[Rfam]
RNA sequence: CUACGUUCUCAGGGCGGGGUGCAAGUCCCCACCGGCGGUAAUGGCACUAGCCUAGCCCGCGAGCGCCUGACCUGUGGUCAGGGACAGCAGACCCGGUGUGAUUCCGGGGCCGACGGUAUAGUCCGGAUAAAGAGAGAACGGGA
Numbered sequence: 001c002u003a004c005g006u007u008c009u010c011a012g013g014g015c016g017g018g019g020u021g022c023a024a025g026u027c028c029c030c031a032c033c034g035g036c037g038g039u040a041a042u043g044g045c046a047c048u049a050g051c052c053u054a055g056c057c058c059g060c061g062a063g064c065g066c067c068u069g070a071c072c073u074g075u076g077g078u079c080a081g082g083g084a085c086a087g088c089a090g091a092c093c094c095g096g097u098g099u100g101a102u103u104c105c106g107g108g109g110c111c112g113a114c115g116g117u118a119u120a121g122u123c124c125g126g127a128u129a130a131a132g133a134g135a136g137a138a139c140g141g142g143a
Base pairs, nucleotide, nucleotide: 004140005139006138007137008136009135010134017029018028019027031122032121033112034111035060036059037058038057055110056109063088064087092108093107094106095105096104114125115124116123